[Rfam]
RNA: Selenocysteine transfer RNA
Nucleotides: 092
Base pairs, nucleotide, nucleotide: 001092002091003090004089005088006087007086008085012027013026016023017022030044031043032042033041048066049065050064051063052062069083070082071081072080
Number, partner (000 for none) and nucleotide at each position: 001092g002091g003090g004089g005088g006087c007086a008085g009000a010000a011000g012027g013026g014000u015000a016023u017022c018000u019000g020000g021000u022017g023016a024000g025000c026013c027012c028000c029000a030044c031043g032042g033041u034000c035000u036000u037000c038000a039000a040000a041033a042032c043031c044030g045000a046000u047000g048066g049065g050064g051063g052062c053000g054000g055000c056000g057000g058000u059000c060000c061000c062052g063051c064050c065049c066048c067000g068000g069083u070082g071081a072080g073000u074000u075000c076000g077000a078000u079000c080072c081071u082070c083069a084000c085008c086007u087006g088005c089004c090003c091002c092001c